[Rfam]
Rfam assigns this 93-nucleotide RNA sequence from Simplicispira metamorpha to the family "SAH (S-adenosyl-L-homocysteine) riboswitch aptamer".

Nucleotides: 093
Stems, first nucleotide, its partner, number of pairs: 003056006021044004
Number, partner (000 for none) and nucleotide at each position: 001000u002000c003056g004055c005054c006053c007052a008051a009000g010000g011000a012000g013000c014000g015000u016000u017000g018000c019000a020000a021044c022043g023042g024041c025000c026000a027000g028000c029000c030000a031000a032000a033000c034000c035000a036000c037000u038000g039000g040000c041024g042023c043022u044021g045000u046000c047000a048000g049000g050000c051008u052007u053006g054005g055004g056003c057000a058000c059000u060000g061000c062000c063000a064000a065000c066000c067000c068000g069000c070000c071000c072000c073000c074000c075000g076000c077000a078000a079000c080000g081000a082000c083000g084000c085000u086000c087000g088000c089000c090000u091000g092000u093000u
NCBI's taxonomy places the organism under Bacteria, Pseudomonadota, Betaproteobacteria, Burkholderiales, Simplicispira. The base pairs follow the family's consensus structure, which is taken from published work. Rfam 15.1 lists 1,354 matches to the family in 1,132 species. A search with the family's covariance model found it, with a score of 47 bits.